A member of the RNA family "MIR2118 microRNA precursor family" from Paspalum vaginatum, 157 nucleotides long. On this family, see Zhu et al., Genome Res 2008: "A diverse set of microRNAs and microRNA-like small RNAs in developing rice grains". The source organism's lineage runs through Eukaryota, Streptophytina, Euphyllophyta, Petrosaviidae and Paspalum. Rfam links the family to the GO terms RISC complex and miRNA-mediated post-transcriptional gene silencing.
RNA sequence: GUCAGGAAGAGGAAGAAACGAGUGUCUAAAAGUAGUAGGCAUGGGAACGUAGAGGAAAGCUCAAACUUUUCUUUCACCUCUAUAACUAGGGGUGGAGAUUAGUUUACUGUUUUCCUGAUGCCUCCCAUGCCUAUUGUUCUUCCUCUUCCUUUUGGCU
Numbered sequence: 001g002u003c004a005g006g007a008a009g010a011g012g013a014a015g016a017a018a019c020g021a022g023u024g025u026c027u028a029a030a031a032g033u034a035g036u037a038g039g040c041a042u043g044g045g046a047a048c049g050u051a052g053a054g055g056a057a058a059g060c061u062c063a064a065a066c067u068u069u070u071c072u073u074u075c076a077c078c079u080c081u082a083u084a085a086c087u088a089g090g091g092g093u094g095g096a097g098a099u100u101a102g103u104u105u106a107c108u109g110u111u112u113u114c115c116u117g118a119u120g121c122c123u124c125c126c127a128u129g130c131c132u133a134u135u136g137u138u139c140u141u142c143c144u145c146u147u148c149c150u151u152u153u154g155g156c157u
Base pairs, nucleotide, nucleotide: 009148010147011146012145013144015142016141017140020139021138022137033136034135036133037132038131039130040129041128042127043126044125045124046123048120049119050118052116054115055114056113057112058111059110060109